[Rfam]
RNA sequence: AACAUUUGGUGGUGGCCUUCGCAUUUGCGUGGCUGACUUGUAUAUUUUUGUCAAAUCUAAUACAAAAAAGCCCGCAAAUAGCGGGCUUUUUUGU
Number, nucleotide and partner (000 for none) at each position: 001a000002a000003c000004a000005u000006u000007u000008g000009g041010u040011g039012g038013u000014g000015g034016c000017c032018u031019u000020c029021g028022c027023a000024u000025u000026u000027g022028c021029g020030u000031g018032g017033c000034u015035g000036a000037c000038u012039u011040g010041u009042a000043u000044a000045u000046u000047u000048u000049u000050g000051u000052c000053a000054a000055a000056u000057c000058u000059a000060a000061u000062a000063c000064a000065a000066a000067a000068a000069a087070g086071c085072c084073c083074g082075c081076a000077a000078a000079u000080a000081g075082c074083g073084g072085g071086c070087u069088u000089u000090u000091u000092u000093g000094u000
Source information:
Tryptophan operon leader: a 94-nucleotide RNA sequence from Catenovulum maritimum. A reference for the family is Kolter and Yanofsky (1982), "Attenuation in amino acid biosynthetic operons", Annu Rev Genet. Taxonomically the source falls in Catenovulum (Bacteria, Gammaproteobacteria, Alteromonadales, Alteromonadaceae). About the family: At least 6 amino acid operons are known to be regulated by attenuation. In each a leader sequence of 150-200 bp is found upstream of the first gene in the operon. This leader sequence can assume two different secondary structures known as the terminator and the anti-terminator structure. In each case the leader also codes for very short peptide sequence that is rich in the end product amino acid of the operon. The terminator structure is recognised as a termination signal for RNA polymerase and the operon is not transcribed. This structure forms when the cell has an excess of the regulatory amino acid and ribosome movement over the leader transcript is not impeded. When there is a deficiency of the charged tRNA of the regulatory amino acid the ribosome translating the leader peptide stalls and the antiterminator structure can form. This allows RNA polymerase to transcribe the operon. In the Rfam alignment the consensus structure is of the terminator structure.